[Rfam]
RNA sequence: UGAAAGCACUAGGGGAGCCAUCAUUGGCUGAGAAUAACAUUUUUGUUUAAACCCUUUGCACCCGAUAUAGGUAAUACUAGCGUGGGUAAGUGCAGUUUUUUCGGU
Numbered sequence: 001u002g003a004a005a006g007c008a009c010u011a012g013g014g015g016a017g018c019c020a021u022c023a024u025u026g027g028c029u030g031a032g033a034a035u036a037a038c039a040u041u042u043u044u045g046u047u048u049a050a051a052c053c054c055u056u057u058g059c060a061c062c063c064g065a066u067a068u069a070g071g072u073a074a075u076a077c078u079a080g081c082g083u084g085g086g087u088a089a090g091u092g093c094a095g096u097u098u099u100u101u102c103g104g105u
Stems, first nucleotide, its partner, number of pairs: 006093005011055004017028004036047004061086004068079003

The family of this 105-nucleotide RNA from Ornithinibacillus caprae is "TPP riboswitch aptamer (THI element)".
Gene Ontology term of the family: thiamine pyrophosphate binding.